[Rfam]
RNA sequence: GGGGCCGAUCGGUUUCGACGGUCGUUGUCCAGCGAGGGGAAGCGGGCCGAGAAGCCAGAGUCAUCUCGUAAACGUCCUCUGGAAACCAACAAGUGCCGAACCCAAGCGCACUGACUUCGCUCUCGCUGCCUGAUCAGCGACAGCAGUCUGGAACCCCGGGAGUGCUCCUGACCCGGAUCGUUCCAUCAUCGAAGGAGCCACUGCUGCCAGCCUUGGUCACCGAGGCUGGGUGAACACCUCAGAGUGACUGAGUCCGUCGACGACGUGUCCGUGUGAGCGUCGGGACUGAGAACACGCCUUCACGGACUGCGCCCGGAGAAGCCCUGGCUCCGCACGAUCGGACGCGGGUUCGAUUCCCGCCGGCUCCACGA
Numbered sequence: 001g002g003g004g005c006c007g008a009u010c011g012g013u014u015u016c017g018a019c020g021g022u023c024g025u026u027g028u029c030c031a032g033c034g035a036g037g038g039g040a041a042g043c044g045g046g047c048c049g050a051g052a053a054g055c056c057a058g059a060g061u062c063a064u065c066u067c068g069u070a071a072a073c074g075u076c077c078u079c080u081g082g083a084a085a086c087c088a089a090c091a092a093g094u095g096c097c098g099a100a101c102c103c104a105a106g107c108g109c110a111c112u113g114a115c116u117u118c119g120c121u122c123u124c125g126c127u128g129c130c131u132g133a134u135c136a137g138c139g140a141c142a143g144c145a146g147u148c149u150g151g152a153a154c155c156c157c158g159g160g161a162g163u164g165c166u167c168c169u170g171a172c173c174c175g176g177a178u179c180g181u182u183c184c185a186u187c188a189u190c191g192a193a194g195g196a197g198c199c200a201c202u203g204c205u206g207c208c209a210g211c212c213u214u215g216g217u218c219a220c221c222g223a224g225g226c227u228g229g230g231u232g233a234a235c236a237c238c239u240c241a242g243a244g245u246g247a248c249u250g251a252g253u254c255c256g257u258c259g260a261c262g263a264c265g266u267g268u269c270c271g272u273g274u275g276a277g278c279g280u281c282g283g284g285a286c287u288g289a290g291a292a293c294a295c296g297c298c299u300u301c302a303c304g305g306a307c308u309g310c311g312c313c314c315g316g317a318g319a320a321g322c323c324c325u326g327g328c329u330c331c332g333c334a335c336g337a338u339c340g341g342a343c344g345c346g347g348g349u350u351c352g353a354u355u356c357c358c359g360c361c362g363g364c365u366c367c368a369c370g371a
Stems, first nucleotide, its partner, number of pairs: 001367007019340007031329003035325004043315005048068005055082006121142001123140006149185006156176003160173001164198006204232001207229006215249006251287005258282003264277001267307004273303003344360005
RNA: transfer-messenger RNA
Organism: Brachybacterium sp. UMB0905